[Rfam]
RNA sequence: UUAUAGGAAGGGAAUGAAGUUCUCCCUAAGUAGUGAAUACUUGAACCGCUUAUUAAGCUGAUGACUUCUGUGUUAAG
Numbered sequence: 001u002u003a004u005a006g007g008a009a010g011g012g013a014a015u016g017a018a019g020u021u022c023u024c025c026c027u028a029a030g031u032a033g034u035g036a037a038u039a040c041u042u043g044a045a046c047c048g049c050u051u052a053u054u055a056a057g058c059u060g061a062u063g064a065c066u067u068c069u070g071u072g073u074u075a076a077g
Stems, first nucleotide, its partner, number of pairs: 010026004016068006048058003
RNA: Fluoride riboswitch aptamer (crcB RNA motif)
Organism: Clostridium sp. CAG:590